[Rfam]
RNA sequence: CAAGGGGUGCCCCUUGGGCGAGAAGAAACAAUCGCAAACUCGUGGCCUGACGGACAGAAACCUAAUACUAAGGCGUAUCAAGCGGAUAAGCAGGCAAAAGGCAGUGAAGAUCCAAAAUGCAAUCGUAACCUUGAUGCGUAAAUUAGGCAGGUAAACGAUGAAAGAUGUAAGG
Numbered sequence: 001c002a003a004g005g006g007g008u009g010c011c012c013c014u015u016g017g018g019c020g021a022g023a024a025g026a027a028a029c030a031a032u033c034g035c036a037a038a039c040u041c042g043u044g045g046c047c048u049g050a051c052g053g054a055c056a057g058a059a060a061c062c063u064a065a066u067a068c069u070a071a072g073g074c075g076u077a078u079c080a081a082g083c084g085g086a087u088a089a090g091c092a093g094g095c096a097a098a099a100g101g102c103a104g105u106g107a108a109g110a111u112c113c114a115a116a117a118u119g120c121a122a123u124c125g126u127a128a129c130c131u132u133g134a135u136g137c138g139u140a141a142a143u144u145a146g147g148c149a150g151g152u153a154a155a156c157g158a159u160g161a162a163a164g165a166u167g168u169a170a171g172g
Base pairs, nucleotide, nucleotide: 001016002015003014004013005012006011029172032169035164040158041157042156043155045152046151047150048149049148061147062146063145064144065143066142073139074138075137077135078134079133080132081131082130084113085112086111087110090105091104093102